[Rfam]
RNA sequence: GUGACAGAAGAGAGUGAGCACACAGAGGCAAAUUGGUAUAAGUGUGUAUGCCAUUGCUCUUGCGUGCUCACUUCUCUCUCUGUCAU
Number, nucleotide and partner (000 for none) at each position: 001g086002u085003g084004a083005c082006a081007g080008a079009a000010g076011a075012g074013a072014g071015u070016g069017a068018g067019c066020a065021c064022a000023c062024a061025g060026a000027g000028g000029c000030a000031a000032a000033u000034u000035g000036g000037u000038a000039u000040a000041a000042g000043u000044g000045u000046g000047u000048a000049u000050g000051c000052c000053a000054u000055u000056g000057c000058u000059c000060u025061u024062g023063c000064g021065u020066g019067c018068u017069c016070a015071c014072u013073u000074c012075u011076c010077u000078c000079u008080c007081u006082g005083u004084c003085a002086u001
Rfam assigns this 86-nucleotide sequence from Actinidia chinensis to the family "mir-156 microRNA precursor family". The base pairs follow the family's consensus structure, which was predicted with PFOLD. The match comes from Rfam's covariance-model search (70 bits). For this family Rfam cites "MicroRNAs in plants" (Reinhart et al., Genes Dev, 2002). From the family's description: This family represents the plant microRNA (miRNA) precursor mir-156. The family has 10 seed sequences and 1,401 matches in Rfam 15.1.